[Rfam]
Shown here is a 61-nucleotide sequence from Pristionchus pacificus, a member of the family "mir-8364 microRNA precursor family". The source organism's lineage runs through Eukaryota, Eumetazoa, Nematoda, Neodiplogasteridae and Pristionchus. A search with the family's covariance model found it, with a score of 72 bits. Pairs were carried over by alignment from the consensus structure, which was predicted with RNAalifold.
RNA sequence: UCUUCAUUUCCCACACUCCCUUACCGGUCAUAGAGGCUAGAGAGUGUGUGAAAUGAAGAGA
Numbered sequence: 001u002c003u004u005c006a007u008u009u010c011c012c013a014c015a016c017u018c019c020c021u022u023a024c025c026g027g028u029c030a031u032a033g034a035g036g037c038u039a040g041a042g043a044g045u046g047u048g049u050g051a052a053a054u055g056a057a058g059a060g061a
Base pairs, nucleotide, nucleotide: 001059002058003057004056005055006054007053010050012048013047014046015045016044017043020040021039